[Rfam]
About this RNA
Shown here is a 134-nucleotide RNA sequence from Pachyramphus minor, a member of the family "Small nucleolar RNA SNORA56". The source organism's lineage runs through Eukaryota, Gnathostomata, Teleostomi, Amniota and Pachyramphus. Clan: SNORA56 clan. It scores 82 bits against the family's covariance model. The base pairs follow the family's consensus structure. Rfam 15.1 lists 153 matches to the family in 125 species. It is annotated as an H/ACA-box small nucleolar RNA. ACA56 is a member of the H/ACA class of snoRNA that guide the sites of modification of uridines to pseudouridines.

RNA sequence: GAGCAGACAGUUAUCCCUUUUUAGCCUGUGCUUGUGGUUCUAGAGGGAGUCAGUCUGCUAAAUUAAAUGGGGGAGGCCUUGCUGUUGCCCAGCCCAGCUGGCGCUGGUGCAGGCUGCAGGUCUUCCCCACACCA
Numbered sequence: 001g002a003g004c005a006g007a008c009a010g011u012u013a014u015c016c017c018u019u020u021u022u023a024g025c026c027u028g029u030g031c032u033u034g035u036g037g038u039u040c041u042a043g044a045g046g047g048a049g050u051c052a053g054u055c056u057g058c059u060a061a062a063u064u065a066a067a068u069g070g071g072g073g074a075g076g077c078c079u080u081g082c083u084g085u086u087g088c089c090c091a092g093c094c095c096a097g098c099u100g101g102c103g104c105u106g107g108u109g110c111a112g113g114c115u116g117c118a119g120g121u122c123u124u125c126c127c128c129a130c131a132c133c134a
Stems, first nucleotide, its partner, number of pairs: 003058006020044005025037002069126006077120003087114003094107005
Dot-bracket structure: ..((((((...........(((((((.........))..)))))........))))))..........((((((..(((.......(((....(((((....)))))....)))...)))))))))........